Shown here is a 200-nucleotide RNA sequence from Shewanella amazonensis, a member of the family "Lysine riboswitch aptamer". The base pairs follow the family's consensus structure, which is taken from published work. Rfam describes the family as follows. Riboswitches are metabolite binding domains within certain messenger RNAs that serve as precision sensors for their corresponding targets. Lineage of the source: Bacteria > Pseudomonadati > Alteromonadales > Shewanellaceae > Shewanella amazonensis.
RNA sequence: GUCCUGAGUAGAGGUGCGCCAAGCAUCAGUAACAGUCAAUAGGGUGAUGCCGUUGACGGGCUGUGAAAGGGUAUUGGCGCCGAAGUGGAUGUGUGUAUCACCGCCUUCCGCUGGGGUCGUUUUCGAAAGAAACGGCACUGCCAUAGUAUUUUCUGUCGGGAUGACAGAUGUUGUAUUUACUAUGGAGCGCUACUGAUAGG
Numbered sequence: 001g002u003c004c005u006g007a008g009u010a011g012a013g014g015u016g017c018g019c020c021a022a023g024c025a026u027c028a029g030u031a032a033c034a035g036u037c038a039a040u041a042g043g044g045u046g047a048u049g050c051c052g053u054u055g056a057c058g059g060g061c062u063g064u065g066a067a068a069g070g071g072u073a074u075u076g077g078c079g080c081c082g083a084a085g086u087g088g089a090u091g092u093g094u095g096u097a098u099c100a101c102c103g104c105c106u107u108c109c110g111c112u113g114g115g116g117u118c119g120u121u122u123u124c125g126a127a128a129g130a131a132a133c134g135g136c137a138c139u140g141c142c143a144u145a146g147u148a149u150u151u152u153c154u155g156u157c158g159g160g161a162u163g164a165c166a167g168a169u170g171u172u173g174u175a176u177u178u179a180c181u182a183u184g185g186a187g188c189g190c191u192a193c194u195g196a197u198a199g200g
Stems, first nucleotide, its partner, number of pairs: 007194005016080006023072002032064006084112006091105001095101001113139002116136008141185007